c-di-GMP-I riboswitch aptamer: an 84-nucleotide RNA sequence from Bacillus sp. Y1.
Pairs were carried over by alignment from the consensus structure, which is taken from published work.

[Rfam]
RNA sequence: GACGAUAAGCGGCAAAAUCAUUGAAAAAUGGUGGCGCAAAACUAAAGGGGCUAAGGACAAGUUCUAUGCCAGCCAGUUACCGAA
Numbered sequence: 001g002a003c004g005a006u007a008a009g010c011g012g013c014a015a016a017a018u019c020a021u022u023g024a025a026a027a028a029u030g031g032u033g034g035c036g037c038a039a040a041a042c043u044a045a046a047g048g049g050g051c052u053a054a055g056g057a058c059a060a061g062u063u064c065u066a067u068g069c070c071a072g073c074c075a076g077u078u079a080c081c082g083a084a
Stems, first nucleotide, its partner, number of pairs: 012037002017032006040078004047074002049070003056064002

About this RNA
The match comes from Rfam's covariance-model search (66 bits). The family is grouped with related families in Rfam's "c-di-GMP_I riboswitch clan". Rfam describes the family as follows. GEMM was predicted in a large-scale screen for bacterial structured RNA regulatory elements. Genes associated with GEMM are involved in a diverse array of functions, including chemotaxis regulation, signal transduction, secretion and chitin.